[Rfam]
RNA sequence: UUGUUGUUAACUUUGGUAACCUAGCUUUAUGAUGUGGUUGAAUAUACUCAUACAGCUAGAUAACCAAAGAGAAUAACAA
Numbered sequence: 001u002u003g004u005u006g007u008u009a010a011c012u013u014u015g016g017u018a019a020c021c022u023a024g025c026u027u028u029a030u031g032a033u034g035u036g037g038u039u040g041a042a043u044a045u046a047c048u049c050a051u052a053c054a055g056c057u058a059g060a061u062a063a064c065c066a067a068a069g070a071g072a073a074u075a076a077c078a079a
Base pairs, nucleotide, nucleotide: 001079002078003077004076005075007073008072011069012068013067014066015065016064017063019061021059022058023057024056025055026054028052029051030050031049032048
Notes: The record is a 79-nucleotide RNA sequence from Medioppia subpectinata, which matches "mir-9/mir-79 microRNA precursor family" in Rfam. The literature on the family includes a 2001 paper in Science by Lagos-Quintana et al., "Identification of novel genes coding for small expressed RNAs". Lineage of the source: Eukaryota > Bilateria > Acariformes > Oppiidae > Medioppia. The family has 214 seed sequences and 5,647 matches in Rfam 15.1. Gene Ontology terms of the family: RISC complex and miRNA-mediated post-transcriptional gene silencing.